[Rfam]
RNA sequence: CCAAAGGCUCUUUUCAGAGCCACCACUUGGUCUAAAAGACCUAUAG
Numbered sequence: 001c002c003a004a005a006g007g008c009u010c011u012u013u014u015c016a017g018a019g020c021c022a023c024c025a026c027u028u029g030g031u032c033u034a035a036a037a038g039a040c041c042u043a044u045a046g
Stems, first nucleotide, its partner, number of pairs: 006021006
Rfam assigns this 46-nucleotide sequence from Sciurus carolinensis to the family "Histone 3' UTR stem-loop". Rfam 15.1 lists 44,596 matches to the family in 976 species.